This 71-nucleotide RNA from Mustela putorius belongs to the Rfam family "Small nucleolar RNA SNORD56". Rfam classes the family as a C/D-box small nucleolar RNA. The source organism's lineage runs through Eukaryota, Vertebrata, Euteleostomi, Mustelidae and Mustela putorius.

[Rfam]
RNA sequence: CUGCCAUGAUGAAGGUAUUUUCGGUCAAUAGCAGUUCCCCUGGUCAGUGCCGAUACUCUGGGUCUGAGGGA
Number, nucleotide and partner (000 for none) at each position: 001c000002u070003g000004c068005c000006a000007u000008g026009a025010u024011g000012a000013a000014g000015g000016u000017a000018u000019u000020u000021u000022c000023g000024g010025u009026c008027a000028a000029u000030a000031g000032c000033a000034g000035u000036u000037c000038c000039c000040c000041u000042g000043g000044u000045c000046a000047g000048u000049g000050c000051c000052g000053a000054u000055a000056c000057u000058c000059u000060g000061g000062g000063u000064c000065u000066g000067a000068g004069g000070g002071a000
Rfam links the family to the GO terms RNA processing and nucleolus. The base pairs follow the family's consensus structure, which was predicted with PFOLD.